[Rfam]
This 113-nucleotide sequence from Bradyrhizobium sp. Leo170 belongs to the Rfam family "Rhizobiales sRNA Atu_At1". The source organism's lineage runs through Bacteria, Pseudomonadati, Pseudomonadota, Hyphomicrobiales and Bradyrhizobium. The literature on the family includes a 2012 paper in RNA Biol by Wilms et al., "Deep sequencing uncovers numerous small RNAs on all four replicons of the plant pathogen Agrobacterium tumefaciens". The family's RNA type in Rfam is small RNA. The match comes from Rfam's covariance-model search (62 bits).
RNA sequence: ACGCACCAGGUGAGAACCGGACGCAAUAGGAAUGCUGGACGCGGAGCAUUUUUCCGGCUUCUGCCCGCGAGAUCAACGUAUCGGUACGCGCUAACAACUAACCCAUUCCCGGC
Numbered sequence: 001a002c003g004c005a006c007c008a009g010g011u012g013a014g015a016a017c018c019g020g021a022c023g024c025a026a027u028a029g030g031a032a033u034g035c036u037g038g039a040c041g042c043g044g045a046g047c048a049u050u051u052u053u054c055c056g057g058c059u060u061c062u063g064c065c066c067g068c069g070a071g072a073u074c075a076a077c078g079u080a081u082c083g084g085u086a087c088g089c090g091c092u093a094a095c096a097a098c099u100a101a102c103c104c105a106u107u108c109c110c111g112g113c
Stems, first nucleotide, its partner, number of pairs: 006112002009109001011023002025107003029103002034098001036096002040069005046064002072085003